[Rfam]
RNA sequence: AAGAGGACGGGGGAUGGCGUCCCCCUGGGCUCAUAGCCCAAACCGCCGGAAUCAUGAGGGCUGAUGACGCCUAUCUCAUG
Numbered sequence: 001a002a003g004a005g006g007a008c009g010g011g012g013g014a015u016g017g018c019g020u021c022c023c024c025c026u027g028g029g030c031u032c033a034u035a036g037c038c039c040a041a042a043c044c045g046c047c048g049g050a051a052u053c054a055u056g057a058g059g060g061c062u063g064a065u066g067a068c069g070c071c072u073a074u075c076u077c078a079u080g
Base pairs, nucleotide, nucleotide: 010025011024012023013022016071017070018069019068020067021066045061046060047059
Dot-bracket structure: .........[[[[..((((((]]]]...................(((...........)))....)))))).........